[Rfam]
This 136-nucleotide sequence from Panicum virgatum belongs to the Rfam family "Small nucleolar RNA snoR138".
The literature on the family includes a 2009 paper in Nucleic Acids Res by Chen and Wu, "Mining small RNA sequencing data: a new approach to identify small nucleolar RNAs in Arabidopsis".

RNA sequence: UGUGCUUCUCGAAUAACCAAUUGCUGUGAUUUGUAUAUAUGCAUUUGGUUCAGACAGGGGCACAUAACAAAUGGGAUCUUUUGAGGGAAGGGAUCUUGUUCUUUGUUCAUCCCUUCUUAGAUUGAUUCCAACAGUA
Numbered sequence: 001u002g003u004g005c006u007u008c009u010c011g012a013a014u015a016a017c018c019a020a021u022u023g024c025u026g027u028g029a030u031u032u033g034u035a036u037a038u039a040u041g042c043a044u045u046u047g048g049u050u051c052a053g054a055c056a057g058g059g060g061c062a063c064a065u066a067a068c069a070a071a072u073g074g075g076a077u078c079u080u081u082u083g084a085g086g087g088a089a090g091g092g093a094u095c096u097u098g099u100u101c102u103u104u105g106u107u108c109a110u111c112c113c114u115u116c117u118u119a120g121a122u123u124g125a126u127u128c129c130a131a132c133a134g135u136a
Stems, first nucleotide, its partner, number of pairs: 003062005009057001015050006022043001024041001025039002073129006082109003086106001089103006